Rfam assigns this 54-nucleotide RNA from Oceanibacterium hippocampi to the family "serC leader". The pairing is the family consensus, mapped onto this sequence. Rfam's curators write: This family is a putative regulatory RNA structure that is found upstream of the serC-serA operon in some alpha-proteobacteria. The final stem of the structure overlaps the ribosome binding site of the serC reading frame. Its family is annotated with regulation of gene expression in the Gene Ontology. It scores 48 bits against the family's covariance model. NCBI's taxonomy places the organism under Bacteria, Pseudomonadota, Alphaproteobacteria, Sneathiellales, Oceanibacterium. By type it is a cis-regulatory leader. A reference for the family is Corbino et al. (2005), "Evidence for a second class of S-adenosylmethionine riboswitches and other regulatory RNA motifs in alpha-proteobacteria", Genome Biol.

RNA sequence: GCGCGGGCCACACCCCCCCACCGGGGUGCUACUAGUCUGGAAGGAUUAGACUAU
Numbered sequence: 001g002c003g004c005g006g007g008c009c010a011c012a013c014c015c016c017c018c019c020a021c022c023g024g025g026g027u028g029c030u031a032c033u034a035g036u037c038u039g040g041a042a043g044g045a046u047u048a049g050a051c052u053a054u
Base pairs, nucleotide, nucleotide: 011028012027013026014025015024016023032049033048034047036045037044038043